[Rfam]
This 147-nucleotide RNA from Pseudaminobacter soli belongs to the Rfam family "Alphaproteobacterial sRNA ar45". A reference for the family is del Val et al. (2012), "A survey of sRNA families in alpha-proteobacteria", RNA Biol. The family's RNA type in Rfam is small RNA. The organism belongs to Pseudaminobacter, within Bacteria.

Nucleotides: 147
Stems, first nucleotide, its partner, number of pairs: 001143004008134004016129003023122008031059005037051005067086005087114004093108001095106004
Number, partner (000 for none) and nucleotide at each position: 001143g002142c003141c004140c005000a006000a007000a008134g009133u010132c011131g012000c013000a014000c015000g016129u017128g018127c019000c020000u021000g022000u023122g024121g025120g026119c027118g028117u029116c030115c031059c032058c033057c034056g035055a036000c037051c038050c039049u040048c041047g042000a043000a044000u045000g046000g047041c048040g049039a050038g051037g052000u053000a054000a055035u056034c057033g058032g059031g060000a061000c062000g063000g064000u065000a066000c067086c068085u069084g070083g071082g072000a073000a074000g075000u076000a077000a078000c079000g080000a081000g082071c083070c084069c085068a086067g087114u088113u089112g090111g091000u092000u093108u094000a095106g096105c097104g098103g099000c100000c101000a102000a103098c104097c105096g106095c107000a108093a109000a110000g111090c112089c113088a114087a115030g116029g117028a118027c119026g120025c121024c122023u123000u124000g125000a126000a127018g128017c129016a130000a131011c132010g133009a134008c135000g136000g137000u138000g139000c140004g141003g142002g143001c144000c145000u146000u147000u
The pairing is the family consensus, mapped onto this sequence.